[Rfam]
This 85-nucleotide sequence from Musa acuminata belongs to the Rfam family "Small nucleolar RNA SNORD25". The match comes from Rfam's covariance-model search (69 bits). Rfam classes the family as a C/D-box small nucleolar RNA. Its family is annotated with nucleolus and RNA processing in the Gene Ontology.

RNA sequence: GACAACAAUGAUGAGCCUACGGACUUGUAAUGAUUAUUGAAGAUAUGAUUGCAUAAUCAAAGAACAUCUAAUGGACUACGUUGUC
Numbered sequence: 001g002a003c004a005a006c007a008a009u010g011a012u013g014a015g016c017c018u019a020c021g022g023a024c025u026u027g028u029a030a031u032g033a034u035u036a037u038u039g040a041a042g043a044u045a046u047g048a049u050u051g052c053a054u055a056a057u058c059a060a061a062g063a064a065c066a067u068c069u070a071a072u073g074g075a076c077u078a079c080g081u082u083g084u085c
Base pairs, nucleotide, nucleotide: 002084003083004082005081006080